[Rfam]
Source information
mir-17 microRNA precursor family: a 69-nucleotide RNA sequence from Equus caballus. Rfam 15.1 lists 4,687 matches to the family in 648 species. Rfam describes the family as follows. This family represents the microRNA (miRNA) precursor mir-17, family, which includes mir-20, mir-91, and mir-103. miRNAs are transcribed as ~70nt precursors (modelled here) and subsequently processed by the Dicer enzyme to give a ~22nt product. In this case the mature sequence comes from the 3' arm of the precursor. The extents of the hairpin precursors are not generally known and are estimated based on hairpin prediction. Pairs were carried over by alignment from the consensus structure, which was predicted with RNAalifold.
RNA sequence: AGUACCAAAGUGCUCAUAGUGCAGGUAGUUUUGGCAUUACUCUACUGUAGUGUGGGCACUUCCAGUACU
Numbered sequence: 001a002g003u004a005c006c007a008a009a010g011u012g013c014u015c016a017u018a019g020u021g022c023a024g025g026u027a028g029u030u031u032u033g034g035c036a037u038u039a040c041u042c043u044a045c046u047g048u049a050g051u052g053u054g055g056g057c058a059c060u061u062c063c064a065g066u067a068c069u
Stems, first nucleotide, its partner, number of pairs: 001069002004066002008061011020049003024046005